A member of the RNA family "Na+ riboswitch aptamer (DUF1646)", 58 nucleotides long.
Its family is annotated with regulation of gene expression and sodium ion binding in the Gene Ontology.
The base pairs follow the family's consensus structure, which is taken from published work.
A reference for the family is White et al. (2022), "Na(+) riboswitches regulate genes for diverse physiological processes in bacteria", Nat Chem Biol.
RNA sequence: GGUUGGGCGAAUUCAAUAUUCGCUUUCAAGAGUUAAAAACUUCUGGGGGUGGGAGGCU
Numbered sequence: 001g002g003u004u005g006g007g008c009g010a011a012u013u014c015a016a017u018a019u020u021c022g023c024u025u026u027c028a029a030g031a032g033u034u035a036a037a038a039a040c041u042u043c044u045g046g047g048g049g050u051g052g053g054a055g056g057c058u
Base pairs, nucleotide, nucleotide: 003029004028005027006024007023008022009021010020011019038058040056041055042054043053044052